[Rfam]
RNA sequence: UCUCGAUCGCUGUAGGCCACAGCAGAAGCGUUCACGUUGUGACCCAUCAGGUAAUAACCUGGUAAUGGCUGCAAAUUCUGCU
Numbered sequence: 001u002c003u004c005g006a007u008c009g010c011u012g013u014a015g016g017c018c019a020c021a022g023c024a025g026a027a028g029c030g031u032u033c034a035c036g037u038u039g040u041g042a043c044c045c046a047u048c049a050g051g052u053a054a055u056a057a058c059c060u061g062g063u064a065a066u067g068g069c070u071g072c073a074a075a076u077u078c079u080g081c082u
Stems, first nucleotide, its partner, number of pairs: 013046001015044002018041001021082007028040003048071003
Dot-bracket structure: ............[.[[.[..((((((((((.......)))].]].].(((..................)))....)))))))
Mammalian CPEB3 ribozyme: an 82-nucleotide RNA sequence from Crocodylus porosus. NCBI's taxonomy places the organism under Eukaryota, Opisthokonta, Dipnotetrapodomorpha, Sauropsida, Crocodylus. A search with the family's covariance model found it, with a score of 36 bits.